Rfam assigns this 100-nucleotide RNA sequence to the family "DUF1874 RNA".
The sequence is in the family's curated seed alignment.
The family's consensus secondary structure is taken from published work.
It is annotated as a cis-regulatory element.
RNA sequence: GUAAGCCCAAGCCCGUAUGCCACGGUCAUCCAAAGGUAAGAGUUCCCAAAGGGAACCGCCGUGGCCCUUCCGCAAGGAAGGAGGGCUUGGGAUAGGAGGA
Number, nucleotide and partner (000 for none) at each position: 001g000002u000003a000004a000005g093006c091007c090008c089009a000010a000011g086012c085013c084014c083015g000016u000017a000018u000019g065020c064021c063022a062023c061024g060025g059026u058027c000028a000029u000030c000031c000032a000033a000034a000035g000036g000037u000038a000039a000040g057041a000042g056043u055044u054045c053046c052047c000048a000049a000050a000051g000052g046053g045054a044055a043056c042057c040058g026059c025060c024061g023062u022063g021064g020065c019066c081067c000068u079069u078070c077071c076072g000073c000074a000075a000076g071077g070078a069079a068080g000081g066082a000083g014084g013085g012086c011087u000088u000089g008090g007091g006092a000093u005094a000095g000096g000097a000098g000099g000100a000